[Rfam]
RNA sequence: CCUGCGGUUCCGUCCGCAGUAGCCUAUCGGCAUCGGCGUAGCUGGUAACGGCUGGGUCGAGAGCUGCCGAGAAAACGGCCCUCCGUCGUGAGACAGAGGAGCCCCGCGAGGGGCGAUCUCACACUGCCAGCGUCACGGCGGUGGGAGGG
Dot-bracket structure: .((((((......))))))........((((((((((.((((((....)))))).)))))....)))))............((.(((....))).))(((...((....)).....)))...((((((........)))))).......
RNA: Group II catalytic intron D1-D4-7
Organism: Tunturiibacter empetritectus